[Rfam]
RNA sequence: CCGCAUGGACGACCUUGCGCGCCUCAGUCACAUCGGGGACGGCCCCG
Numbered sequence: 001c002c003g004c005a006u007g008g009a010c011g012a013c014c015u016u017g018c019g020c021g022c023c024u025c026a027g028u029c030a031c032a033u034c035g036g037g038g039a040c041g042g043c044c045c046c047g
Stems, first nucleotide, its partner, number of pairs: 002019004007014002034047005

Rfam assigns this 47-nucleotide RNA sequence from Caballeronia sp. SBC1 to the family "Guanidine-II riboswitch aptamer (mini-ykkC)". About the family: Simpler in structure and has fewer highly conserved nucleotide positions than the ykkC-yxkD leader. NCBI's taxonomy places the organism under Bacteria, Pseudomonadati, Betaproteobacteria, Burkholderiaceae, Caballeronia. Gene Ontology term of the family: regulation of gene expression. It scores 40 bits against the family's covariance model.